[Rfam]
RNA sequence: UGCCUAACCCUCAUGCACGUAAAAUCGCAGAGGUAUGGCCGAAAAUCCUUUCCAGUAAAAAACUCCUCGUCAGAGUUCCUGGAAAGGUCAUACCUCGAAAGGGGUGUGUCGGGCCGAAAGGUUCGA
Numbered sequence: 001u002g003c004c005u006a007a008c009c010c011u012c013a014u015g016c017a018c019g020u021a022a023a024a025u026c027g028c029a030g031a032g033g034u035a036u037g038g039c040c041g042a043a044a045a046u047c048c049u050u051u052c053c054a055g056u057a058a059a060a061a062a063c064u065c066c067u068c069g070u071c072a073g074a075g076u077u078c079c080u081g082g083a084a085a086g087g088u089c090a091u092a093c094c095u096c097g098a099a100a101g102g103g104g105u106g107u108g109u110c111g112g113g114c115c116g117a118a119a120g121g122u123u124c125g126a
Stems, first nucleotide, its partner, number of pairs: 002039003009033004014029002047087009061077005089108008109126006
LOOT RNA: a 126-nucleotide RNA. Pairs were carried over by alignment from the consensus structure, which is taken from published work.